[Rfam]
RNA sequence: AUACAAAAAUUAAGAAAAAAACACCAACUGUUUUUCUUUAAGGUAAGUCGCAUUCACAAACUUUGGUCAGGGAGUGAGCGACUUCUUUUUUUGUUUUUUU
Numbered sequence: 001a002u003a004c005a006a007a008a009a010u011u012a013a014g015a016a017a018a019a020a021a022c023a024c025c026a027a028c029u030g031u032u033u034u035u036c037u038u039u040a041a042g043g044u045a046a047g048u049c050g051c052a053u054u055c056a057c058a059a060a061c062u063u064u065g066g067u068c069a070g071g072g073a074g075u076g077a078g079c080g081a082c083u084u085c086u087u088u089u090u091u092u093g094u095u096u097u098u099u100u
Stems, first nucleotide, its partner, number of pairs: 006039003017035007047082005054077004
RNA: ctRNA